[Rfam]
RNA: mir-344 microRNA precursor family
Organism: Nannospalax galili
RNA sequence: UUGUCAGUCAGGCUCCUGCCCGGAGUCCAGCUCUCAGCUGGUUCCAGGCUCUGGCCAGGGGCUUGACUUCAAA
Numbered sequence: 001u002u003g004u005c006a007g008u009c010a011g012g013c014u015c016c017u018g019c020c021c022g023g024a025g026u027c028c029a030g031c032u033c034u035c036a037g038c039u040g041g042u043u044c045c046a047g048g049c050u051c052u053g054g055c056c057a058g059g060g061g062c063u064u065g066a067c068u069u070c071a072a073a
Base pairs, nucleotide, nucleotide: 007067008066009065011063012062013060014059017057018056020054021053022052023051024050027041028040029039030038031037